Overview:
The family of this 45-nucleotide RNA sequence from Orycteropus afer is "Histone 3' UTR stem-loop". Taxonomically the source falls in Orycteropus afer (Eukaryota, Opisthokonta, Gnathostomata, Amniota). A search with the family's covariance model found it, with a score of 39 bits. About the family: The mRNAs of metazoan histone genes lack a poly-A tail. 3' end processing occurs at a site between a highly conserved stem-loop (modelled by this family) and a purine rich region around 20 nts downstream (the histone downstream element, or HDE). The stem-loop is bound by a 31 kDa stem-loop binding protein (SLBP - also termed the histone hairpin binding protein, or HBP). Rfam 15.1 lists 44,596 matches to the family in 976 species. Pairs were carried over by alignment from the consensus structure, which is taken from published work.
[Rfam]
RNA sequence: CCAAAGGCUCUUUUCAGAGCCACCCAUCUAAUCACAAGAAAAGAG
Numbered sequence: 001c002c003a004a005a006g007g008c009u010c011u012u013u014u015c016a017g018a019g020c021c022a023c024c025c026a027u028c029u030a031a032u033c034a035c036a037a038g039a040a041a042a043g044a045g
Base pairs, nucleotide, nucleotide: 006021007020008019009018010017011016